DnaX ribosomal frameshifting element: a 65-nucleotide RNA from Atlantibacter hermannii. This family represents a ribosomal frameshifting element found in the mRNA of the dnaX gene in E. coli. The dnaX gene has two encoded products tau and gamma which are produced in a 1:1 ratio. The gamma protein is synthesised due to programmed frameshifting and is shorter than tau. The two products of the dnaX gene are DNA polymerase III subunits. Its family is annotated with translational frameshifting in the Gene Ontology.

[Rfam]
RNA sequence: CCCAGGAGGGCAGCAGAACAAAAAAGAGUGAACCGGCAGCGCCCAAAACCGCGCGGCCGGUGAGC
Numbered sequence: 001c002c003c004a005g006g007a008g009g010g011c012a013g014c015a016g017a018a019c020a021a022a023a024a025a026g027a028g029u030g031a032a033c034c035g036g037c038a039g040c041g042c043c044c045a046a047a048a049c050c051g052c053g054c055g056g057c058c059g060g061u062g063a064g065c
Stems, first nucleotide, its partner, number of pairs: 032061006039054004